Nucleotides: 249
Base pairs, nucleotide, nucleotide: 002225009067010066011065073088074087075086076085077084078083094160095159096158097157098156185220186219187218188217189216191214192213193212195208196207197206198205231247232246233245234244235243
Number, partner (000 for none) and nucleotide at each position: 001000g002225g003000c004000c005000g006000c007000g008000g009067g010066c011065g012000g013000u014000a015000a016000a017000a018000g019000a020000c021000c022000c023000c024000u025000c026000a027000a028000g029000a030000a031000c032000c033000g034000g035000g036000g037000g038000a039000a040000a041000u042000a043000a044000c045000c046000a047000a048000c049000c050000c051000a052000a053000c054000c055000a056000a057000c058000c059000a060000a061000a062000c063000c064000u065011c066010g067009c068000g069000u070000a071000g072000g073088u074087c075086a076085c077084u078083c079000g080000g081000g082000c083078g084077g085076g086075u087074g088073a089000a090000a091000c092000c093000g094160g095159c096158u097157g098156g099000a100000g101000c102000g103000g104000g105000u106000g107000g108000c109000g110000c111000g112000g113000u114000g115000g116000u117000g118000g119000u120000u121000c122000g123000g124000g125000c126000g127000u128000g129000c130000a131000g132000g133000c134000u135000g136000g137000c138000c139000g140000c141000g142000a143000g144000g145000c146000c147000g148000g149000g150000c151000c152000c153000a154000a155000c156098u157097c158096g159095g160094c161000g162000c163000u164000c165000c166000c167000g168000a169000g170000a171000g172000g173000c174000a175000c176000a177000u178000a179000u180000g181000c182000a183000u184000c185220g186219g187218c188217c189216c190000c191214c192213g193212c194000c195208g196207g197206g198205a199000c200000g201000g202000c203000a204000a205198u206197c207196c208195c209000a210000g211000u212193g213192c214191g215000a216189g217188g218187g219186c220185c221000u222000g223000a224000c225002c226000a227000a228000c229000g230000a231247g232246g233245a234244a235243g236000a237000a238000g239000a240000g241000a242000g243235c244234u245233u246232c247231c248000c249000c
Shown here is a 249-nucleotide sequence from Streptomyces rubrolavendulae, a member of the family "Streptomyces sRNA 4677". The source organism's lineage runs through Bacteria, Actinomycetota, Actinomycetes, Kitasatosporales and Streptomyces. Located in the intergenic region between anti-sigma factor SCO4677 gene and a putative regulatory protein gene SCO4676. scr4677 expression requires the SCO4677 activity and scr4677 sRNA itself seem to affect the levels of the SCO4676-associated transcripts. It scores 82 bits against the family's covariance model.